[Rfam]
RNA sequence: GCCCUUUAAAAUCCGCGCGAAUGGCCUAUAUGGGUCGUGCCGGCUUCGGCCGGCUAUGGCGAUAAAGUGCAGCGUUUAAUAGGCGCAGCGGACCCGGGGGCGGUACCCGGCGGCUCCACCACUUGAUCCGCCGACCAGCACGCAAGCGUGCCGGCCGAGCGGCUCAGCUGAUGGGGCCGAACUAGGAUCGACGUGUGUUGAAACGCGCUGUUUUUGCCCGGGCUGAGUAACCCGUAAAAGGCUCAAAACCACAAGUGCCAACGAUAACGAGGCGCUCGCGAUUGCCGCGUAACCUGGUCCUCACGGACUGAGUUACUAAGGACAAAAGCGCGGUUCGGGCCGCACCGGGCAACAGAAGCGGAUUCC
Numbered sequence: 001g002c003c004c005u006u007u008a009a010a011a012u013c014c015g016c017g018c019g020a021a022u023g024g025c026c027u028a029u030a031u032g033g034g035u036c037g038u039g040c041c042g043g044c045u046u047c048g049g050c051c052g053g054c055u056a057u058g059g060c061g062a063u064a065a066a067g068u069g070c071a072g073c074g075u076u077u078a079a080u081a082g083g084c085g086c087a088g089c090g091g092a093c094c095c096g097g098g099g100g101c102g103g104u105a106c107c108c109g110g111c112g113g114c115u116c117c118a119c120c121a122c123u124u125g126a127u128c129c130g131c132c133g134a135c136c137a138g139c140a141c142g143c144a145a146g147c148g149u150g151c152c153g154g155c156c157g158a159g160c161g162g163c164u165c166a167g168c169u170g171a172u173g174g175g176g177c178c179g180a181a182c183u184a185g186g187a188u189c190g191a192c193g194u195g196u197g198u199u200g201a202a203a204c205g206c207g208c209u210g211u212u213u214u215u216g217c218c219c220g221g222g223c224u225g226a227g228u229a230a231c232c233c234g235u236a237a238a239a240g241g242c243u244c245a246a247a248a249c250c251a252c253a254a255g256u257g258c259c260a261a262c263g264a265u266a267a268c269g270a271g272g273c274g275c276u277c278g279c280g281a282u283u284g285c286c287g288c289g290u291a292a293c294c295u296g297g298u299c300c301u302c303a304c305g306g307a308c309u310g311a312g313u314u315a316c317u318a319a320g321g322a323c324a325a326a327a328g329c330g331c332g333g334u335u336c337g338g339g340c341c342g343c344a345c346c347g348g349g350c351a352a353c354a355g356a357a358g359c360g361g362a363u364u365c366c
Base pairs, nucleotide, nucleotide: 039054040053041052042051043050058218059217060216061215062214069211070210071209072208073207074206075205084197085196086195088194089193090192094110095109096108097107098106111179112178113177114176115175116174117173219234220233221232222231224245225244226243331347332346333345334344337364338363340361341360

Alphaproteobacteria transfer-messenger RNA: a 366-nucleotide RNA sequence from Sphingomonas parva. By type it is a non-coding RNA gene. NCBI's taxonomy places the organism under Bacteria, Alphaproteobacteria, Sphingomonadales, Sphingomonadaceae, Sphingomonas. A search with the family's covariance model found it, with a score of 225 bits.